[Rfam]
RNA sequence: CUUACGGAUGAGCAAAGAAAGUGGUUUGCGCCUCAAGAAACCACUUUCUUUGCUCAUCCAUAAGGA
Numbered sequence: 001c002u003u004a005c006g007g008a009u010g011a012g013c014a015a016a017g018a019a020a021g022u023g024g025u026u027u028g029c030g031c032c033u034c035a036a037g038a039a040a041c042c043a044c045u046u047u048c049u050u051u052g053c054u055c056a057u058c059c060a061u062a063a064g065g066a
Stems, first nucleotide, its partner, number of pairs: 001064004006059022
RNA: mir-1255 microRNA precursor family
Organism: Pan troglodytes